Rfam assigns this 63-nucleotide RNA sequence from Araneus ventricosus to the family "mir-16 microRNA precursor family". The family has 14 seed sequences and 4,705 matches in Rfam 15.1.

RNA sequence: CAACUACCCCAGUAGCACAGAAAUAUAAUAUAAUAUUAUAUUUCUGUGCUACUGGGGUAUAUA
Numbered sequence: 001c002a003a004c005u006a007c008c009c010c011a012g013u014a015g016c017a018c019a020g021a022a023a024u025a026u027a028a029u030a031u032a033a034u035a036u037u038a039u040a041u042u043u044c045u046g047u048g049c050u051a052c053u054g055g056g057g058u059a060u061a062u063a
Base pairs, nucleotide, nucleotide: 002062005059006058007057010056011053012052013051014050015049016048017047018046020043022042023041024040025039026038027037028036029035030034

The family is grouped with related families in Rfam's "mir-15 clan".
Lineage of the source: Eukaryota > Ecdysozoa > Arachnida > Araneae > Araneus.